Rfam assigns this 290-nucleotide RNA from Musa balbisiana to the family "Plant signal recognition particle RNA".
Taxonomically the source falls in Musa (Eukaryota, Streptophytina, Mesangiospermae, Musaceae).
RNA sequence: CGAUGAAAUAACAAAAUUUUGACGUGUAAGGUGGUGGGAUGAAUGUACGGGCCAAGUGGGUGAGGUGUUGACGUGUAAAUCUCGACUUGUCCGUUCCAAGUCGGGCAGCUGAACCAUGCGGUCCGGGCGUAGGCUCGGGUCGCGUUGGAUCCUAAAGCGGAGGGCACAGCGUCAGGCUGGCUUCACAGAGCAGCGAAUACCUCCCGCUCUCGACGGUGGAAGGAUAACAAGUUGGCGCACGCCUCACCCAUCGUACCCACUUGGCUACUACUGAUCAAACCAUCACCUUU
Numbered sequence: 001c002g003a004u005g006a007a008a009u010a011a012c013a014a015a016a017u018u019u020u021g022a023c024g025u026g027u028a029a030g031g032u033g034g035u036g037g038g039a040u041g042a043a044u045g046u047a048c049g050g051g052c053c054a055a056g057u058g059g060g061u062g063a064g065g066u067g068u069u070g071a072c073g074u075g076u077a078a079a080u081c082u083c084g085a086c087u088u089g090u091c092c093g094u095u096c097c098a099a100g101u102c103g104g105g106c107a108g109c110u111g112a113a114c115c116a117u118g119c120g121g122u123c124c125g126g127g128c129g130u131a132g133g134c135u136c137g138g139g140u141c142g143c144g145u146u147g148g149a150u151c152c153u154a155a156a157g158c159g160g161a162g163g164g165c166a167c168a169g170c171g172u173c174a175g176g177c178u179g180g181c182u183u184c185a186c187a188g189a190g191c192a193g194c195g196a197a198u199a200c201c202u203c204c205c206g207c208u209c210u211c212g213a214c215g216g217u218g219g220a221a222g223g224a225u226a227a228c229a230a231g232u233u234g235g236c237g238c239a240c241g242c243c244u245c246a247c248c249c250a251u252c253g254u255a256c257c258c259a260c261u262u263g264g265c266u267a268c269u270a271c272u273g274a275u276c277a278a279a280c281c282a283u284c285a286c287c288u289u290u
Stems, first nucleotide, its partner, number of pairs: 012021003028289010040277002044273001045271003049266002052264010064248004070242001072241005082235009091223002094221005100214006107208003111151002114148003117144012152157001159204005170195003177188003
Dot-bracket structure: ...........(((....)))......((((((((((..((..((((.((.((((((((((..((((..(.(((((.....(((((((((((.(((((.((((((.(((.((.(((((((((((((((....)))))))))))).))).))(....).(((((......(((....(((......)))....)))....))))).)))))))))..)))))))...))))))))).))))))..))))......))))))))))))..))).)..))..)))))))))).